[Rfam]
RNA sequence: UUGGCAGUGAUGAUUGGCGCAGGGGUACGUACCUCAGCCAAUGAUGGGGGCUGAGUGUCGAUGCCCAUUCUCAGUUAAGCAGGCGUGUGGCCAGCUGACAGGGAGGGCGCCGGCACGACACAGACGCCAAAAUCUGAGCCCA
Numbered sequence: 001u002u003g004g005c006a007g008u009g010a011u012g013a014u015u016g017g018c019g020c021a022g023g024g025g026u027a028c029g030u031a032c033c034u035c036a037g038c039c040a041a042u043g044a045u046g047g048g049g050g051c052u053g054a055g056u057g058u059c060g061a062u063g064c065c066c067a068u069u070c071u072c073a074g075u076u077a078a079g080c081a082g083g084c085g086u087g088u089g090g091c092c093a094g095c096u097g098a099c100a101g102g103g104a105g106g107g108c109g110c111c112g113g114c115a116c117g118a119c120a121c122a123g124a125c126g127c128c129a130a131a132a133u134c135u136g137a138g139c140c141c142a
Base pairs, nucleotide, nucleotide: 001142003140004139005138